Shown here is a 195-nucleotide RNA from Tenebrionibacter intestinalis, a member of the family "Yersinia sRNA 276".

[Rfam]
RNA sequence: CACCGACAUCAGUGAUUCAUUCUGCGAGCCGUGCCCUACCGCCAGAUAGGCGUUCAUGCCCAGCUCUUUCAUUUGCUGCUCGCCGAUAACGCGCGUGACGGUGUUCUGGCUGUAAGCAUCCGCCAACUGGCGCGCCUGUGAGGCAAGGUAGGCGGCGUUGCAAAUAUUAGGCGGCAUAUUGCCCAGAUCUUUUGC
Number, nucleotide and partner (000 for none) at each position: 001c000002a000003c000004c000005g189006a188007c000008a000009u000010c000011a000012g032013u031014g030015a000016u028017u027018c026019a000020u024021u000022c000023u000024g020025c000026g018027a017028g016029c000030c014031g013032u012033g043034c000035c041036c000037u000038a000039c000040c000041g035042c000043c033044a000045g000046a000047u000048a000049g000050g059051c058052g000053u000054u000055c000056a000057u000058g051059c050060c000061c000062a077063g076064c075065u000066c000067u000068u000069u000070c000071a000072u000073u000074u000075g064076c063077u062078g135079c134080u000081c132082g131083c130084c129085g128086a000087u126088a000089a000090c000091g123092c122093g121094c000095g119096u118097g117098a000099c112100g111101g110102u109103g000104u000105u000106c000107u000108g000109g102110c101111u100112g099113u000114a000115a000116g000117c097118a096119u095120c000121c093122g092123c091124c000125a000126a087127c000128u085129g084130g083131c082132g081133c000134g079135c078136c000137u162138g161139u000140g159141a158142g000143g156144c155145a000146a000147g000148g000149u000150a000151g000152g000153c000154g000155g144156c143157g000158u141159u140160g000161c138162a137163a000164a000165u000166a000167u186168u185169a000170g183171g182172c181173g000174g000175c000176a000177u000178a000179u000180u000181g172182c171183c170184c000185a168186g167187a000188u006189c005190u000191u000192u000193u000194g000195c000
A search with the family's covariance model found it, with a score of 177 bits. For this family Rfam cites "Transcriptomic profiling of Yersinia pseudotuberculosis reveals reprogramming of the Crp regulon by temperature and uncovers Crp as a master regulator of small RNAs" (Nuss et al., PLoS Genet, 2015).